[Rfam]
RNA sequence: CCACUACCAAACCCUAUCUCCACCUCCACGUGGUGGUCGCUGGGAGCUCUUUAUUAACGAAAAGCUGCAGACGGAGAAGG
Numbered sequence: 001c002c003a004c005u006a007c008c009a010a011a012c013c014c015u016a017u018c019u020c021c022a023c024c025u026c027c028a029c030g031u032g033g034u035g036g037u038c039g040c041u042g043g044g045a046g047c048u049c050u051u052u053a054u055u056a057a058c059g060a061a062a063a064g065c066u067g068c069a070g071a072c073g074g075a076g077a078a079g080g
Stems, first nucleotide, its partner, number of pairs: 013080003017076001019074002022034003045066004050061003
Dot-bracket structure: ............(((.(.((.(((.......)))..........((((.(((......))).))))......)).).)))
The record is an 80-nucleotide sequence from Hermetia illucens, which matches "drz-agam-1 ribozyme" in Rfam.
The literature on the family includes a 2009 paper in Science by Webb et al., "Widespread occurrence of self-cleaving ribozymes".
NCBI's taxonomy places the organism under Eukaryota, Metazoa, Eumetazoa, Altocrustacea, Hermetia.
The base pairs follow the family's consensus structure, which is taken from published work.